The family of this 110-nucleotide sequence is "c-di-GMP-II-GAG riboswitch aptamer". The sequence is in the family's curated seed alignment. A reference for the family is Weinberg et al. (2017), "Bioinformatic analysis of riboswitch structures uncovers variant classes with altered ligand specificity", Proc Natl Acad Sci U S A. The family is grouped with related families in Rfam's "c-di-GMP_II riboswitch clan".
RNA sequence: ACAUCCCCGGGAAGCGAUGACGCUCGGACCGCGUGACGGUCGCCCGGCGGUCGCCCGGCACGGGCCCGCCGCAUCCGAGCCGAGCCAGUGGCGAGACCGGCCCGGAACGA
Dot-bracket structure: ...(..(((((..((......(((((((.........[[[[[[[.............................)))))))...))....]]]]]..]]..)))))...).